[Rfam]
Nucleotides: 053
Stems, first nucleotide, its partner, number of pairs: 001048009011038008
Number, partner (000 for none) and nucleotide at each position: 001048g002047u003046g004045a005044g006043a007042a008041c009040c010000c011038u012037g013036u014035g015034a016033a017032u018031u019000u020000a021000a022000u023000a024000g025000u026000g027000u028000a029000g030000u031018g032017a033016u034015u035014c036013a037012c038011a039000a040009g041008g042007u043006u044005c045004u046003c047002a048001c049000c050000u051000g052000u053000u
Notes: Shown here is a 53-nucleotide RNA from Primulina eburnea, a member of the family "Plastid-ccsA-ndhD-2 3UTR RNA". Lineage of the source: Eukaryota > Embryophyta > Pentapetalae > Lamiales > Primulina. Pairs were carried over by alignment from the consensus structure, which was predicted with LocARNA. Plastid ccsA-ndhD-2 is a non-coding RNA (ncRNA) recognised in plastids. It was found in the three prime untranslated region (3UTR) of ccsA and ndhD genes, its 3UTR location suggests a role in transcript maturation. The sequence is in the family's curated seed alignment. For this family Rfam cites "Retrograde signaling in plants: A critical review focusing on the GUN pathway and beyond" (Richter et al., Plant Commun, 2023).